[Rfam]
RNA sequence: CCGGUUCCGGUUCCCGCCCUCAACCGGCGCGCACCACGCGACGGGGGCGACCCGGCGACC
Numbered sequence: 001c002c003g004g005u006u007c008c009g010g011u012u013c014c015c016g017c018c019c020u021c022a023a024c025c026g027g028c029g030c031g032c033a034c035c036a037c038g039c040g041a042c043g044g045g046g047g048c049g050a051c052c053c054g055g056c057g058a059c060c
Stems, first nucleotide, its partner, number of pairs: 003060003007055004015049007
The record is a 60-nucleotide sequence from Micromonospora craterilacus, which matches "L31-Actinobacteria ribosomal protein leader" in Rfam. Pairs were carried over by alignment from the consensus structure, which is taken from published work. A search with the family's covariance model found it, with a score of 47 bits. The family is grouped with related families in Rfam's "Ribosomal Protein L31 Leader clan". Taxonomically the source falls in Micromonospora (Bacteria, Actinomycetota, Actinomycetes, Micromonosporaceae).